[Rfam]
RNA sequence: CUCUUAUCCAGAGUGGUGGAGGGACUGGCCCGAUGAAACCCGGCAACCGCCUGAAAGGUAUGGUGCCAAAUCCUGCAGGAGGAUCCUGGCAGAUGAGAG
Numbered sequence: 001c002u003c004u005u006a007u008c009c010a011g012a013g014u015g016g017u018g019g020a021g022g023g024a025c026u027g028g029c030c031c032g033a034u035g036a037a038a039c040c041c042g043g044c045a046a047c048c049g050c051c052u053g054a055a056a057g058g059u060a061u062g063g064u065g066c067c068a069a070a071u072c073c074u075g076c077a078g079g080a081g082g083a084u085c086c087u088g089g090c091a092g093a094u095g096a097g098a099g
Stems, first nucleotide, its partner, number of pairs: 001099008013041001015040003021031003025075001027073002042067004047063002049059004071091001076088005
SAM riboswitch aptamer (S box leader): a 99-nucleotide RNA from Syntrophomonas wolfei. The source organism's lineage runs through Bacteria, Bacillati, Eubacteriales, Syntrophomonadaceae and Syntrophomonas wolfei subsp. wolfei. The sequence is in the family's curated seed alignment.